[Rfam]
RNA sequence: AUGCAAACCUCCAGCAUGCUUGGGUCUGGAGUGACCCUGUGCAUUCCUACAGUGCUUGCAAGAACAAUUUUGAAAUGGUUUGAGGCCUUGCUAUAUACCAUCUUAAAAGCAAGGUUAUAGAAAUUUCAGACAACU
Numbered sequence: 001a002u003g004c005a006a007a008c009c010u011c012c013a014g015c016a017u018g019c020u021u022g023g024g025u026c027u028g029g030a031g032u033g034a035c036c037c038u039g040u041g042c043a044u045u046c047c048u049a050c051a052g053u054g055c056u057u058g059c060a061a062g063a064a065c066a067a068u069u070u071u072g073a074a075a076u077g078g079u080u081u082g083a084g085g086c087c088u089u090g091c092u093a094u095a096u097a098c099c100a101u102c103u104u105a106a107a108a109g110c111a112a113g114g115u116u117a118u119a120g121a122a123a124u125u126u127c128a129g130a131c132a133a134c135u
Stems, first nucleotide, its partner, number of pairs: 003059004008054001017043003022037005071128005086114006094106001

A member of the RNA family "Small nucleolar RNA SNORA9" from Chrysochloris asiatica, 135 nucleotides long. The family is grouped with related families in Rfam's "SNORA9 clan". Rfam classes the family as an H/ACA-box small nucleolar RNA. The base pairs follow the family's consensus structure, which was predicted with PFOLD. Rfam links the family to the GO terms nucleolus and RNA processing. Rfam's curators write: ACA9 is a member of the H/ACA class of snoRNA that guide the sites of modification of uridines to pseudouridines.